[Rfam]
Overview: Shown here is a 121-nucleotide RNA from Pasteurellaceae bacterium 15-036681, a member of the family "Ribosomal S15 leader". The E. coli Ribosomal S15 gene 5' UTR can form two alternative structures. One that is a series of three hairpins, The other includes a pseudoknot. The family's consensus secondary structure is taken from published work. The literature on the family includes a 1996 paper in Biochimie by Benard et al., "Pseudoknot and translational control in the expression of the S15 ribosomal protein".

RNA sequence: UGUCGUAGCUGAGUUAGAGAUCGGCUAUUGAUGAAUUUAAACUAACUACUUUUUGGAGUAAAAAAUGUCUCUAAGUACAGAAAAAAAAGCUGCAAUCGUUGCUGAAUUUGGUCGUGAUGCA
Numbered sequence: 001u002g003u004c005g006u007a008g009c010u011g012a013g014u015u016a017g018a019g020a021u022c023g024g025c026u027a028u029u030g031a032u033g034a035a036u037u038u039a040a041a042c043u044a045a046c047u048a049c050u051u052u053u054u055g056g057a058g059u060a061a062a063a064a065a066u067g068u069c070u071c072u073a074a075g076u077a078c079a080g081a082a083a084a085a086a087a088a089g090c091u092g093c094a095a096u097c098g099u100u101g102c103u104g105a106a107u108u109u110g111g112u113c114g115u116g117a118u119g120c121a
Base pairs, nucleotide, nucleotide: 007026008025009024010023011022012021052075053074054073055072056071057070058069